Rfam assigns this 116-nucleotide RNA sequence from Paramecium tetraurelia to the family "U5 spliceosomal RNA".

RNA sequence: AUCACCGAGCUCAACCUAUUACGUGCUAAUUUUUCGCCUUUUACUAAAGAUUACCGUGGGUUGGGCUCAUACCGGUGACUUACAGAAAUUUUUAGAGGUCGAAAGACCCCCAACCA
Numbered sequence: 001a002u003c004a005c006c007g008a009g010c011u012c013a014a015c016c017u018a019u020u021a022c023g024u025g026c027u028a029a030u031u032u033u034u035c036g037c038c039u040u041u042u043a044c045u046a047a048a049g050a051u052u053a054c055c056g057u058g059g060g061u062u063g064g065g066c067u068c069a070u071a072c073c074g075g076u077g078a079c080u081u082a083c084a085g086a087a088a089u090u091u092u093u094a095g096a097g098g099u100c101g102a103a104a105g106a107c108c109c110c111c112a113a114c115c116a
Stems, first nucleotide, its partner, number of pairs: 003077004008067011027053008097115003101111001
Dot-bracket structure: ..((((.(((((((((((........((((((((...........))))))))...)))))))))))......))))...................(((.(.........).))).

Description: Pairs were carried over by alignment from the consensus structure, which is taken from published work. Rfam classes the family as a spliceosomal small nuclear RNA. The literature on the family includes a 1997 paper in Nucleic Acids Res by Zwieb, "The uRNA database".